Shown here is a 69-nucleotide RNA sequence from Cryptosporangium arvum, a member of the family "ASpks TB sRNA". The base pairs follow the family's consensus structure, which is taken from published work. The family's RNA type in Rfam is antisense RNA.
[Rfam]
RNA sequence: CUUCACCGAGCCGAGCAGCAGCGGCUCCGGGCGGUCCUGUCCGUAGGUGGCGAGCAGCGCCUGCGCUUC
Numbered sequence: 001c002u003u004c005a006c007c008g009a010g011c012c013g014a015g016c017a018g019c020a021g022c023g024g025c026u027c028c029g030g031g032c033g034g035u036c037c038u039g040u041c042c043g044u045a046g047g048u049g050g051c052g053a054g055c056a057g058c059g060c061c062u063g064c065g066c067u068u069c
Stems, first nucleotide, its partner, number of pairs: 014026003027063001032059002037054002041050003